[Rfam]
RNA sequence: UACAAUAGAAUCGGCUUUCAAGGGUGGUCGGCUAAUCCCCGGAGAGGGGGUGAUGCCCGUGAGGUAUAUCAAGCAUUAUCCUUGAUGAUCAUGUUCGCCAUGUUCGUCUUGGCUCUGCUUACCUUCCUCAAAAAGAAAUAGACCGCCCUUGGCAUAGGUUUGCGGUCUAUUUCAGUAGGCCUGACUUAGUAGCCGAUCACCCUUUAGGGCAAUCUAUUGUACGGACCGUAGAUGUAGCAGCAUCUACG
Dot-bracket structure: (((((.(((.((((((.(((((((.(.(....(.(.((((.....)))).).).......((((((.......((..........)).........(.(............).).))))).)..................).)..)))))))...........((......)).................))))))....((.....))...))).))))).....(((((((((....)))))))))

Rfam assigns this 248-nucleotide RNA from Effusibacillus lacus to the family "BsrG". It is annotated as a small RNA. The family's consensus secondary structure was predicted with WAR. For this family Rfam cites "Novel small RNA-encoding genes in the intergenic regions of Bacillus subtilis" (Saito et al., Gene, 2008). The organism belongs to Effusibacillus, within Bacteria. bsrE, bsrG and bsrH pair through intermolecular interactions with antisense sRNAs. They form type I toxin/antitoxin system that includes an mRNA encoding for a short, toxic peptide (bsrE, bsrG and bsrH) and an antitoxin that is comprised of an antisense RNA. bsrG encodes a 39-amino-acid toxin, and the 180 nucleotide antisense sRNA called SR4 acts as the antitoxin (they overlap by 123 nucleotides). A search with the family's covariance model found it, with a score of 83 bits.